[Rfam]
RNA sequence: UUAACUCAAAUUUGUAUGGAGUUGGAACGUUUGCCGCUAGAGGCGCUGUACCAACUCCAUACACAUUUGAAUUA
Number, nucleotide and partner (000 for none) at each position: 001u000002u000003a000004a000005c000006u000007c000008a068009a067010a066011u065012u000013u063014g062015u061016a060017u000018g058019g000020a056021g055022u054023u053024g052025g051026a000027a049028c048029g047030u000031u000032u000033g000034c042035c000036g000037c000038u000039a000040g000041a000042g034043g000044c000045g000046c000047u029048g028049u027050a000051c025052c024053a023054a022055c021056u020057c000058c018059a000060u016061a015062c014063a013064c000065a011066u010067u009068u008069g000070a000071a000072u000073u000074a000

This 74-nucleotide RNA sequence from Bombyx mori belongs to the Rfam family "mir-2807 microRNA precursor family". NCBI's taxonomy places the organism under Eukaryota, Opisthokonta, Protostomia, Obtectomera, Bombyx. The family's consensus secondary structure was predicted with RNAalifold. The family has 8 seed sequences and 5,120 matches in Rfam 15.1. On this family, see Liu et al., BMC Genomics 2010: "MicroRNAs of Bombyx mori identified by Solexa sequencing".